[Rfam]
RNA sequence: AGCUUCUUGAAUCUGUACGGAGAUUUCGUCAAACACCAAUCUAUCAUGGUUGAUAACACUUCCAAGAUGAGUGAAGUU
Numbered sequence: 001a002g003c004u005u006c007u008u009g010a011a012u013c014u015g016u017a018c019g020g021a022g023a024u025u026u027c028g029u030c031a032a033a034c035a036c037c038a039a040u041c042u043a044u045c046a047u048g049g050u051u052g053a054u055a056a057c058a059c060u061u062c063c064a065a066g067a068u069g070a071g072u073g074a075a076g077u078u
Stems, first nucleotide, its partner, number of pairs: 002077005008071001011068003016064001019062004024058001026056001028054003
Dot-bracket structure: .(((((.(..(((..(..((((.(.(.(((.....................))).).))))).).)))..).))))).